RNA sequence: GGUUACCGAGUGCAGUGGUUCUAACCAGUUCAACAGUUCUCUACUGAAAUUGUGAAAUGUUUAGGACCACUUGACUCGGU
Number, nucleotide and partner (000 for none) at each position: 001g000002g000003u000004u000005a000006c000007c000008g000009a000010g000011u000012g000013c000014a071015g070016u069017g068018g067019u066020u000021c064022u063023a000024a061025c000026c059027a058028g000029u056030u055031c054032a053033a000034c000035a000036g000037u000038u000039c000040u000041c000042u000043a000044c000045u000046g000047a000048a000049a000050u000051u000052g000053u032054g031055a030056a029057a000058u027059g026060u000061u024062u000063a022064g021065g000066a019067c018068c017069a016070c015071u014072u000073g000074a000075c000076u000077c000078g000079g000080u000
Rfam assigns this 80-nucleotide RNA from Petromyzon marinus to the family "mir-203 microRNA precursor family". A reference for the family is Lim et al. (2003), "Vertebrate microRNA genes", Science. Its family is annotated with RISC complex and miRNA-mediated post-transcriptional gene silencing in the Gene Ontology. The family has 32 seed sequences and 1,049 matches in Rfam 15.1. It is one of the family's seed sequences. Pairs were carried over by alignment from the consensus structure, which was predicted with RNAalifold.